[Rfam]
RNA sequence: CCAUGUCCCUGAAUGGCACUGGAAGAAUUCACGGGGUGUAAAUGGGUCUCCGUGAUUUCCUGGUGUCAAGCAGGGUCAUAU
Numbered sequence: 001c002c003a004u005g006u007c008c009c010u011g012a013a014u015g016g017c018a019c020u021g022g023a024a025g026a027a028u029u030c031a032c033g034g035g036g037u038g039u040a041a042a043u044g045g046g047u048c049u050c051c052g053u054g055a056u057u058u059c060c061u062g063g064u065g066u067c068a069a070g071c072a073g074g075g076u077c078a079u080a081u
Base pairs, nucleotide, nucleotide: 003079004078005077007075008074009073010072014068015067016066017065018064020062021061022060023058025057026056029055030054031053032052033051034050